[Rfam]
RNA sequence: GACUUAUUAAUAUUAGCAAGCUUAACAUUUUUUGGUAGGCGCAGAGAAAUCUAGUCUUAAUAGGGCGAAAGUUAAUAUUAAUAGACCCGAAACCGGGCGAUCUAUCCAUGAACAGGUUGAAGGUAAAAUAAUAUUUACUGAAGGACCGAACCGGUAUCUGUUGCAAAAGAUUCGGAUGAUUUGUGGAUAGGGGUGAAAGGCUAAUCAAGCUCGGAGAUAGCUGGUUCUCCUCGAAAGCUAUUUAGGUAGCGCCUUAUAUAUAAUUAAUAGGGGUAAAGCACUGUAUUGAAUAAGCUUAUGCUGAAUCAUAACAAACUAUGAAUACUAUUAAUUAAAUUAUAGGAGACACACUUAGGGUGCUAACAUCCUAAGUGGAAAGGGAAACAACCCAGAUCAUAAAUUAAGGUCCCUAAAUCUUAUUUAAGUGGAAAAUGAUGUUUUAAAUCUAUAACAAUCAAAAGGUGGGCUUAGAAGCAGCCAUCCUUUAAAGAAAGCGUAAUAGCUCAUUGAUCUAGAUGUUUAAUACAAAAAAUUUAACGGGGCUAAAAUAAGUACCGAAAUUAUGAACAUUAUUUUUGUGGUAGAGGAG
Numbered sequence: 001g002a003c004u005u006a007u008u009a010a011u012a013u014u015a016g017c018a019a020g021c022u023u024a025a026c027a028u029u030u031u032u033u034g035g036u037a038g039g040c041g042c043a044g045a046g047a048a049a050u051c052u053a054g055u056c057u058u059a060a061u062a063g064g065g066c067g068a069a070a071g072u073u074a075a076u077a078u079u080a081a082u083a084g085a086c087c088c089g090a091a092a093c094c095g096g097g098c099g100a101u102c103u104a105u106c107c108a109u110g111a112a113c114a115g116g117u118u119g120a121a122g123g124u125a126a127a128a129u130a131a132u133a134u135u136u137a138c139u140g141a142a143g144g145a146c147c148g149a150a151c152c153g154g155u156a157u158c159u160g161u162u163g164c165a166a167a168a169g170a171u172u173c174g175g176a177u178g179a180u181u182u183g184u185g186g187a188u189a190g191g192g193g194u195g196a197a198a199g200g201c202u203a204a205u206c207a208a209g210c211u212c213g214g215a216g217a218u219a220g221c222u223g224g225u226u227c228u229c230c231u232c233g234a235a236a237g238c239u240a241u242u243u244a245g246g247u248a249g250c251g252c253c254u255u256a257u258a259u260a261u262a263a264u265u266a267a268u269a270g271g272g273g274u275a276a277a278g279c280a281c282u283g284u285a286u287u288g289a290a291u292a293a294g295c296u297u298a299u300g301c302u303g304a305a306u307c308a309u310a311a312c313a314a315a316c317u318a319u320g321a322a323u324a325c326u327a328u329u330a331a332u333u334a335a336a337u338u339a340u341a342g343g344a345g346a347c348a349c350a351c352u353u354a355g356g357g358u359g360c361u362a363a364c365a366u367c368c369u370a371a372g373u374g375g376a377a378a379g380g381g382a383a384a385c386a387a388c389c390c391a392g393a394u395c396a397u398a399a400a401u402u403a404a405g406g407u408c409c410c411u412a413a414a415u416c417u418u419a420u421u422u423a424a425g426u427g428g429a430a431a432a433u434g435a436u437g438u439u440u441u442a443a444a445u446c447u448a449u450a451a452c453a454a455u456c457a458a459a460a461g462g463u464g465g466g467c468u469u470a471g472a473a474g475c476a477g478c479c480a481u482c483c484u485u486u487a488a489a490g491a492a493a494g495c496g497u498a499a500u501a502g503c504u505c506a507u508u509g510a511u512c513u514a515g516a517u518g519u520u521u522a523a524u525a526c527a528a529a530a531a532a533u534u535u536a537a538c539g540g541g542g543c544u545a546a547a548a549u550a551a552g553u554a555c556c557g558a559a560a561u562u563a564u565g566a567a568c569a570u571u572a573u574u575u576u577u578g579u580g581g582u583a584g585a586g587g588a589g
Stems, first nucleotide, its partner, number of pairs: 005083013020040004026034002044051002054066004086224002089221001093214006102190011113178001115147004122139006151175003156171004192202003227589006237250005252345001253343006261336001262333009276319001277317002282313003287308003293302003349374010379390003394566004399562003405556003414553001416552006433527002437524003442519001444517003454511005460484003465479003485489001490505001494503002567579003
Bacterial large subunit ribosomal RNA: a 589-nucleotide part of an RNA from Candidatus Carsonella ruddii. The base pairs follow the family's consensus structure, which is taken from published work.